[Rfam]
Nucleotides: 262
Base pairs, nucleotide, nucleotide: 001132002131003130004129005128014122015121016120026111027110028109030108031107032106036052037051038050039049040048053093054092055091056090057089058088059087133148134147135146136145
Number, partner (000 for none) and nucleotide at each position: 001132a002131a003130c004129g005128a006000u007000a008000a009000a010000c011000a012000c013000u014122g015121u016120g017000g018000g019000a020000a021000g022000u023000a024000a025000a026111c027110g028109u029000u030108g031107c032106g033000g034000a035000c036052c037051c038050g039049g040048g041000g042000g043000c044000a045000g046000a047000g048040c049039c050038c051037g052036g053093c054092g055091c056090c057089u058088c059087c060000a061000c062000c063000u064000a065000a066000a067000g068000a069000g070000a071000u072000u073000u074000u075000u076000u077000c078000u079000u080000u081000u082000u083000g084000c085000a086000u087059g088058g089057g090056g091055g092054c093053g094000a095000a096000u097000u098000a099000g100000g101000a102000u103000c104000g105000a106032c107031g108030u109028g110027c111026g112000u113000u114000a115000a116000a117000a118000c119000g120016u121015a122014u123000a124000g125000u126000u127000u128005u129004c130003g131002u132001u133148c134147a135146u136145c137000a138000u139000g140000g141000u142000a143000c144000c145136g146135a147134u148133g149000u150000u151000u152000u153000g154000g155000g156000c157000c158000g159000u160000c161000a162000a163000u164000a165000u166000a167000a168000a169000u170000g171000c172000g173000a174000a175000u176000u177000u178000u179000g180000a181000u182000a183000a184000c185000g186000c187000a188000u189000u190000u191000g192000g193000c194000a195000a196000a197000a198000u199000u200000u201000c202000u203000g204000u205000a206000a207000a208000g209000a210000a211000u212000g213000c214000c215000g216000c217000a218000a219000a220000c221000g222000g223000u224000a225000g226000a227000c228000u229000u230000u231000c232000a233000g234000a235000u236000a237000g238000u239000g240000u241000a242000c243000g244000g245000c246000a247000u248000g249000c250000u251000g252000u253000a254000g255000c256000a257000g258000c259000u260000u261000a262000a

permuted transfer-messenger RNA: a 262-nucleotide RNA from Holospora obtusa. About the family: Bacterial tmRNA, also known as 10Sa RNA or SsrA, is named for its dual tRNA and mRNA-like properties. Its role is to liberate the mRNA from a stalled ribosome. For this family Rfam cites "Phylogenetic analysis of tmRNA secondary structure" (Williams and Bartel, RNA, 1996). Taxonomically the source falls in Holospora obtusa (Bacteria, Pseudomonadota, Alphaproteobacteria, Holosporales). Rfam classes the family as a non-coding RNA gene.